[Rfam]
Annotation: Rfam assigns this 60-nucleotide RNA sequence from Halogranum gelatinilyticum to the family "S15-Halobacteria ribosomal protein leader". Rfam classes the family as a cis-regulatory leader. A search with the family's covariance model found it, with a score of 74 bits.

RNA sequence: AUGGGAACAGCGCAGCCGCAAAUCUGACUCGCCCGUUUGGGCUUGGGAUUGCGGUAGUGC
Numbered sequence: 001a002u003g004g005g006a007a008c009a010g011c012g013c014a015g016c017c018g019c020a021a022a023u024c025u026g027a028c029u030c031g032c033c034c035g036u037u038u039g040g041g042c043u044u045g046g047g048a049u050u051g052c053g054g055u056a057g058u059g060c
Base pairs, nucleotide, nucleotide: 010060011059012058013057015055016054017053018052019051020050021049024047025046031042032041033040034039